The record is a 147-nucleotide RNA from Streptomyces qinzhouensis, which matches "c-di-AMP riboswitch aptamer (ydaO/yuaA leader)" in Rfam. About the family: This family represents a conserved RNA structure found upstream of the ydaO and yuaA genes in Bacillus subtilis and related genes in other bacteria. The organism belongs to Streptomyces, within Bacteria. The pairing is the family consensus, mapped onto this sequence.
RNA sequence: CGUGCUCAUGCGCCGAAUCUCGUAAGGGAACCGGGGAACCACUUCUUGGGGUGAAUCGGAUGCCUCCGCAGCCUGCGGGGGCGACCGUAGGAGACCUUCCUGCUCCGAACCCGUCAGCUAACCCGGUAGGCGAGAAGGAAGGAAAGG
Numbered sequence: 001c002g003u004g005c006u007c008a009u010g011c012g013c014c015g016a017a018u019c020u021c022g023u024a025a026g027g028g029a030a031c032c033g034g035g036g037a038a039c040c041a042c043u044u045c046u047u048g049g050g051g052u053g054a055a056u057c058g059g060a061u062g063c064c065u066c067c068g069c070a071g072c073c074u075g076c077g078g079g080g081g082c083g084a085c086c087g088u089a090g091g092a093g094a095c096c097u098u099c100c101u102g103c104u105c106c107g108a109a110c111c112c113g114u115c116a117g118c119u120a121a122c123c124c125g126g127u128a129g130g131c132g133a134g135a136a137g138g139a140a141g142g143a144a145a146g147g
Stems, first nucleotide, its partner, number of pairs: 011132004018029003030127006040048002049112003057087003090106004